[Rfam]
RNA sequence: ACACGAGAGAGGAGGUGGUCCAACGGUGAAUUGCUAUAGGACUCGUGAGGUGGCUGUCCGCUAAGGACCACCCAACCGGACAUGGUUUGGCCGGCUGCGCAACACGGCUGACAUCGGCUCUGCCGGUGCCGUAGACGCGCGGUGUGGUCGGCGAAUACCAGGCAGUCACCCGGCCCCCGGAGCUCUCAGGACCUCGUCCGAUCCUGAGCCUGUGCUCGCUCGGCGAACGCAGGAGCCGCCCGGGGGUCGUCCUAU
Numbered sequence: 001a002c003a004c005g006a007g008a009g010a011g012g013a014g015g016u017g018g019u020c021c022a023a024c025g026g027u028g029a030a031u032u033g034c035u036a037u038a039g040g041a042c043u044c045g046u047g048a049g050g051u052g053g054c055u056g057u058c059c060g061c062u063a064a065g066g067a068c069c070a071c072c073c074a075a076c077c078g079g080a081c082a083u084g085g086u087u088u089g090g091c092c093g094g095c096u097g098c099g100c101a102a103c104a105c106g107g108c109u110g111a112c113a114u115c116g117g118c119u120c121u122g123c124c125g126g127u128g129c130c131g132u133a134g135a136c137g138c139g140c141g142g143u144g145u146g147g148u149c150g151g152c153g154a155a156u157a158c159c160a161g162g163c164a165g166u167c168a169c170c171c172g173g174c175c176c177c178c179g180g181a182g183c184u185c186u187c188a189g190g191a192c193c194u195c196g197u198c199c200g201a202u203c204c205u206g207a208g209c210c211u212g213u214g215c216u217c218g219c220u221c222g223g224c225g226a227a228c229g230c231a232g233g234a235g236c237c238g239c240c241c242g243g244g245g246g247u248c249g250u251c252c253u254a255u
Stems, first nucleotide, its partner, number of pairs: 014058006059153004064148001068146001171249010182239002186207006